[Rfam]
Nucleotides: 059
Base pairs, nucleotide, nucleotide: 010025011024012023013022016050017049018048019047020046021045032040033039
Number, partner (000 for none) and nucleotide at each position: 001000a002000u003000a004000a005000a006000u007000a008000a009000u010025g011024g012023u013022g014000a015000u016050g017049g018048a019047g020046u021045u022013c023012a024011c025010c026000a027000a028000a029000a030000c031000u032040g033039c034000a035000u036000u037000a038000u039033g040032c041000u042000a043000a044000u045021g046020a047019c048018u049017c050016c051000u052000a053000c054000a055000g056000g057000u058000a059000a
A member of the RNA family "Fluoride riboswitch aptamer (crcB RNA motif)" from Sporanaerobacter acetigenes, 59 nucleotides long. The organism belongs to Sporanaerobacter acetigenes, within Bacteria. A reference for the family is Ren et al. (2012), "Fluoride ion encapsulation by Mg2+ ions and phosphates in a fluoride riboswitch", Nature.